[Rfam]
RNA: Glycine riboswitch aptamer
RNA sequence: AUGAAAUUCUCGGGAGAUGAUUCUGAAAAAGAAUAGCCGAAGGAAUAAGUGAUGUAUUCCCAUACAUCAUGAAGCUCUCAGGCAAAUGUAUCGAGAAUGGACA
Numbered sequence: 001a002u003g004a005a006a007u008u009c010u011c012g013g014g015a016g017a018u019g020a021u022u023c024u025g026a027a028a029a030a031g032a033a034u035a036g037c038c039g040a041a042g043g044a045a046u047a048a049g050u051g052a053u054g055u056a057u058u059c060c061c062a063u064a065c066a067u068c069a070u071g072a073a074g075c076u077c078u079c080a081g082g083c084a085a086a087u088g089u090a091u092c093g094a095g096a097a098u099g100g101a102c103a
Base pairs, nucleotide, nucleotide: 006098007097008096009095010094011093012092013091020034021033022032023031036083037082038081039079040078043077044076049070050069051068052067053066054065055064056063057062